The record is a 140-nucleotide sequence from Indicator maculatus, which matches "Small Cajal body specific RNA 11" in Rfam.
The literature on the family includes a 2002 paper in EMBO J by Darzacq et al., "Cajal body-specific small nuclear RNAs: a novel class of 2'-O-methylation and pseudouridylation guide RNAs".
NCBI's taxonomy places the organism under Eukaryota, Amniota, Coelurosauria, Neognathae, Indicator.
Rfam classes the family as a small Cajal body RNA.
Pairs were carried over by alignment from the consensus structure, which was predicted with RNAalifold.
[Rfam]
RNA sequence: GUGUCCUGACCUCAUCUUUGCUCUUCCCCUCACCGGAACUGUGGUGGUGGGGCCUGGGGGUGGACACAGAUCAAUUUACCUCUCGUGUUAGGAGGGCUACCAAAGAUAUGUGCAAGCCCUUAAAGGCAGGAGAGGACACC
Numbered sequence: 001g002u003g004u005c006c007u008g009a010c011c012u013c014a015u016c017u018u019u020g021c022u023c024u025u026c027c028c029c030u031c032a033c034c035g036g037a038a039c040u041g042u043g044g045u046g047g048u049g050g051g052g053c054c055u056g057g058g059g060g061u062g063g064a065c066a067c068a069g070a071u072c073a074a075u076u077u078a079c080c081u082c083u084c085g086u087g088u089u090a091g092g093a094g095g096g097c098u099a100c101c102a103a104a105g106a107u108a109u110g111u112g113c114a115a116g117c118c119c120u121u122a123a124a125g126g127c128a129g130g131a132g133a134g135g136a137c138a139c140c
Stems, first nucleotide, its partner, number of pairs: 002066005010059002026052002028049001030047004079135006088125002092121007100112001101110002